[Rfam]
RNA sequence: GGGAAUAAUGGACGCGAGGGAACUCGGCCAAAUAGCUCCGUAUCUUCGGUAGAAGGAGUGCCUGUUCCGAGAGGGAACAGGUCGCAGUGGCAAGGGGACCCCGACUGUUUACCAAAAACACAGGCCGCUGCUAGUUCGAAAGGAUGUGUAUAGCGGUCGAAACCUGCCCAGUGUCGGUACCUGAAAGUCCCGUUCAAGGGAAAGAAGGGCCGAUAAACGGCGGGGGUAACUAUGACCCUCUUAAGGUAGCGUAAUACCUAGCCGCUUAAUUGGCGGCUUGCAUGAAGGUUCAACGAGAGUCCCACUGUCCCCGCGUUCAGCCCCGUGAAAUUGAUGCACUGGUGCACAAUCCAGUAU
Numbered sequence: 001g002g003g004a005a006u007a008a009u010g011g012a013c014g015c016g017a018g019g020g021a022a023c024u025c026g027g028c029c030a031a032a033u034a035g036c037u038c039c040g041u042a043u044c045u046u047c048g049g050u051a052g053a054a055g056g057a058g059u060g061c062c063u064g065u066u067c068c069g070a071g072a073g074g075g076a077a078c079a080g081g082u083c084g085c086a087g088u089g090g091c092a093a094g095g096g097g098a099c100c101c102c103g104a105c106u107g108u109u110u111a112c113c114a115a116a117a118a119c120a121c122a123g124g125c126c127g128c129u130g131c132u133a134g135u136u137c138g139a140a141a142g143g144a145u146g147u148g149u150a151u152a153g154c155g156g157u158c159g160a161a162a163c164c165u166g167c168c169c170a171g172u173g174u175c176g177g178u179a180c181c182u183g184a185a186a187g188u189c190c191c192g193u194u195c196a197a198g199g200g201a202a203a204g205a206a207g208g209g210c211c212g213a214u215a216a217a218c219g220g221c222g223g224g225g226g227u228a229a230c231u232a233u234g235a236c237c238c239u240c241u242u243a244a245g246g247u248a249g250c251g252u253a254a255u256a257c258c259u260a261g262c263c264g265c266u267u268a269a270u271u272g273g274c275g276g277c278u279u280g281c282a283u284g285a286a287g288g289u290u291c292a293a294c295g296a297g298a299g300u301c302c303c304a305c306u307g308u309c310c311c312c313g314c315g316u317u318c319a320g321c322c323c324c325g326u327g328a329a330a331u332u333g334a335u336g337c338a339c340u341g342g343u344g345c346a347c348a349a350u351c352c353a354g355u356a357u
Stems, first nucleotide, its partner, number of pairs: 001324003009319008018310003035059005044049001060082009083087001095303005101297001102295002106120003123158008131148001134145004161290004166221003171218002173214005180209003188201004222240006241245001261277006338355005